[Rfam]
RNA sequence: GGAGUCCCACCAAGGUAAUGCCUAACCAGCAGCCCUGUAGUCAGUCCUUGGAGACACUCAGGCAACUGAACGUUUUAAGCGUAGGACGGCAAAAUAACGGGCCGAAAGCAAACGCUGAAGUGAUUGAGCCCCGAAAUAUUAAUUGAGAAAGGCCGAUGUGAUUACACACACAGAAGGCAACAUCAGUGCAGACGCUAUGAUGAGUCUUCACUGGCGCUCCGGGGUCUAAGAACU
Numbered sequence: 001g002g003a004g005u006c007c008c009a010c011c012a013a014g015g016u017a018a019u020g021c022c023u024a025a026c027c028a029g030c031a032g033c034c035c036u037g038u039a040g041u042c043a044g045u046c047c048u049u050g051g052a053g054a055c056a057c058u059c060a061g062g063c064a065a066c067u068g069a070a071c072g073u074u075u076u077a078a079g080c081g082u083a084g085g086a087c088g089g090c091a092a093a094a095u096a097a098c099g100g101g102c103c104g105a106a107a108g109c110a111a112a113c114g115c116u117g118a119a120g121u122g123a124u125u126g127a128g129c130c131c132c133g134a135a136a137u138a139u140u141a142a143u144u145g146a147g148a149a150a151g152g153c154c155g156a157u158g159u160g161a162u163u164a165c166a167c168a169c170a171c172a173g174a175a176g177g178c179a180a181c182a183u184c185a186g187u188g189c190a191g192a193c194g195c196u197a198u199g200a201u202g203a204g205u206c207u208u209c210a211c212u213g214g215c216g217c218u219c220c221g222g223g224g225u226c227u228a229a230g231a232a233c234u
Stems, first nucleotide, its partner, number of pairs: 011037002014034002019031003023203001025201001040090003045086004049081002051076005058069004125228001126226001128225006145219003151215001152178003157172004183214006190207004
Rfam assigns this 234-nucleotide RNA from Pelotomaculum propionicicum to the family "Group II catalytic intron D1-D4-6".
Pairs were carried over by alignment from the consensus structure.
It scores 132 bits against the family's covariance model.
Rfam links the family to the GO term Group II intron splicing.